[Rfam]
Rfam assigns this 65-nucleotide RNA sequence from Myotis davidii to the family "U7 small nuclear RNA".
Animal histone pre-mRNAs are spliced by a different mechanism than nuclear pre-mRNAs and self-splicing introns.
The family's consensus secondary structure was predicted with PFOLD.
The match comes from Rfam's covariance-model search (48 bits).
RNA sequence: CAGUGCUUAUAGCUCUUCUUGAAUUUGCCUAGCAGGUCUUCCAGUUUUUACCGAAAGCCGCCCCC
Numbered sequence: 001c002a003g004u005g006c007u008u009a010u011a012g013c014u015c016u017u018c019u020u021g022a023a024u025u026u027g028c029c030u031a032g033c034a035g036g037u038c039u040u041c042c043a044g045u046u047u048u049u050a051c052c053g054a055a056a057g058c059c060g061c062c063c064c065c
Stems, first nucleotide, its partner, number of pairs: 035062003038057003042053001044051002